[Rfam]
RNA sequence: UGCGGUCCUCGGUAGUGGCCCUUGAGGGCGUCCGUGACACGGACGCGCCAAGGGCCUCGAUCGAAGACCGGG
Numbered sequence: 001u002g003c004g005g006u007c008c009u010c011g012g013u014a015g016u017g018g019c020c021c022u023u024g025a026g027g028g029c030g031u032c033c034g035u036g037a038c039a040c041g042g043a044c045g046c047g048c049c050a051a052g053g054g055c056c057u058c059g060a061u062c063g064a065a066g067a068c069c070g071g072g
Base pairs, nucleotide, nucleotide: 001072003070004069005068006067007066009064010063011062012061013060017056018055019054020053021052022051023050024049028046029045030044031043032042033041034040035039
RNA: Actino-pnp RNA